[Rfam]
RNA sequence: AUUUAAACGGGAUUGAAGCGAUAUCUUUUUACCCGCCCCUUUCAGGGCAUUUAAGGGUAAAAAAUUUAGCGUAAAGCCCGACUAACA
Numbered sequence: 001a002u003u004u005a006a007a008c009g010g011g012a013u014u015g016a017a018g019c020g021a022u023a024u025c026u027u028u029u030u031a032c033c034c035g036c037c038c039c040u041u042u043c044a045g046g047g048c049a050u051u052u053a054a055g056g057g058u059a060a061a062a063a064a065u066u067u068a069g070c071g072u073a074a075a076g077c078c079c080g081a082c083u084a085a086c087a
Stems, first nucleotide, its partner, number of pairs: 009079003013075002018070002023065002027062008